[Rfam]
The family of this 195-nucleotide RNA sequence from Raphanus sativus is "U2 spliceosomal RNA". Rfam classes the family as a spliceosomal small nuclear RNA. Rfam's curators write: U2 is a small nuclear RNA (snRNA) component of the spliceosome (involved in pre-mRNA splicing). Complementary binding between U2 snRNA (in an area lying towards the 5' end but 3' to hairpin I) and the branchpoint sequence (BPS) of the intron results the bulging out of an unpaired adenosine, on the BPS, which initiates a nucleophilic attack at the intronic 5' splice site, thus starting the first of two transesterification reactions that mediate splicing. The source organism's lineage runs through Eukaryota, Spermatophyta, Gunneridae, Brassicaceae and Raphanus. The base pairs follow the family's consensus structure, which is taken from published work. Its Rfam clan is "U2 clan".
Nucleotides: 195
Stems, first nucleotide, its partner, number of pairs: 008027003012023004048067006069086003073083004114149008128139004151188002154185002158180002162176002
Number, partner (000 for none) and nucleotide at each position: 001000a002000u003000a004000c005000c006000u007000u008027u009026c010025u011000c012023g013022g014021c015020u016000u017000u018000u019000u020015g021014g022013c023012u024000a025010a026009g027008a028000u029000c030000a031000a032000g033000u034000g035000u036000a037000g038000u039000a040000u041000c042000u043000g044000u045000u046000c047000u048067u049066a050065u051064c052063a053062g054000u055000u056000u057000a058000a059000u060000a061000u062053u063052u064051g065050a066049u067048a068000u069086g070085u071084g072000c073083g074082g075081u076080u077000a078000u079000c080076g081075g082074u083073c084071c085070a086069c087000a088000u089000g090000a091000u092000a093000u094000u095000a096000a097000c098000u099000c100000u101000a102000u103000u104000u105000u106000u107000u108000u109000c110000g111000g112000g113000u114149g115148a116147a117146a118145g119144c120143c121142c122000a123000c124000u125000a126000a127000a128139a129138u130137a131136g132000c133000u134000u135000g136131c137130u138129a139128u140000c141000c142121g143120g144119g145118c146117u147116u148115u149114c150000u151188g152187a153000a154185u155184c156000g157000u158180c159179u160000a161000g162176g163175c164000a165000u166000u167000g168000c169000a170000c171000u172000a173000c174000u175163g176162u177000a178000a179159g180158g181000g182000c183000a184155g185154g186000c187152u188151c189000a190000a191000c192000c193000c194000a195000u